Record summary:
A member of the RNA family "Chlorobi-1 RNA" from Chlorobium phaeobacteroides, 66 nucleotides long. The organism belongs to Chlorobium phaeobacteroides, within Bacteria.
RNA sequence: UUUCAGCCUCACGCCCGUGGGGUUGGGCAGGCGUAAUGGGGGACACCUGCUCGAAGAAAAGCGGUC
Numbered sequence: 001u002u003u004c005a006g007c008c009u010c011a012c013g014c015c016c017g018u019g020g021g022g023u024u025g026g027g028c029a030g031g032c033g034u035a036a037u038g039g040g041g042g043a044c045a046c047c048u049g050c051u052c053g054a055a056g057a058a059a060a061g062c063g064g065u066c
Base pairs, nucleotide, nucleotide: 005024006023007022008021009020010019011018012017025052026051027050028049029048030047031046033044034043